[Rfam]
RNA: U1 spliceosomal RNA
RNA sequence: UUUAUUACCUGGAUGGGGUCAAUGGGUGAUCAUGAAGGCUCAUGGCCUAGGUUGGUGGCCUCCAUUGCACUUUGGAGUGGUGUCGGCCUAAGGUCUAUCCAAGUGAUGGAUCCUACAUCAUUAUUUGUUGCAGUGGGGCUUGCGUUCGCGCAGCCCCUUA
Numbered sequence: 001u002u003u004a005u006u007a008c009c010u011g012g013a014u015g016g017g018g019u020c021a022a023u024g025g026g027u028g029a030u031c032a033u034g035a036a037g038g039c040u041c042a043u044g045g046c047c048u049a050g051g052u053u054g055g056u057g058g059c060c061u062c063c064a065u066u067g068c069a070c071u072u073u074g075g076a077g078u079g080g081u082g083u084c085g086g087c088c089u090a091a092g093g094u095c096u097a098u099c100c101a102a103g104u105g106a107u108g109g110a111u112c113c114u115a116c117a118u119c120a121u122u123a124u125u126u127g128u129u130g131c132a133g134u135g136g137g138g139c140u141u142g143c144g145u146u147c148g149c150g151c152a153g154c155c156c157c158u159u160a
Stems, first nucleotide, its partner, number of pairs: 012119004016048006023042005049089003053086001055083003059079001061077001062075002091114003094110003098106002135158004141152004